[Rfam]
RNA sequence: CUCUGGCACUCUUCACAACGGAUCGUCCGGCACGUACCUGCCGGUGAAGGGAACUGCAC
Numbered sequence: 001c002u003c004u005g006g007c008a009c010u011c012u013u014c015a016c017a018a019c020g021g022a023u024c025g026u027c028c029g030g031c032a033c034g035u036a037c038c039u040g041c042c043g044g045u046g047a048a049g050g051g052a053a054c055u056g057c058a059c
Base pairs, nucleotide, nucleotide: 009051010050011049012048013047014046015045027044028043029042030041031040032039

msiK RNA: a 59-nucleotide RNA sequence from Cellulomonas chitinilytica. The organism belongs to Cellulomonas, within Bacteria. Rfam classes the family as a cis-regulatory element.